Rfam assigns this 35-nucleotide sequence from Chitinophaga agri to the family "DUF805b RNA".
RNA sequence: AUUGGGAUUACCGAAAACCAAGAAAAGAGUAGGUA
Number, nucleotide and partner (000 for none) at each position: 001a000002u021003u020004g019005g018006g000007a000008u000009u000010a034011c033012c032013g000014a000015a000016a000017a000018c005019c004020a003021a002022g000023a000024a000025a000026a000027g000028a000029g000030u000031a000032g012033g011034u010035a000
Pairs were carried over by alignment from the consensus structure, which is taken from published work.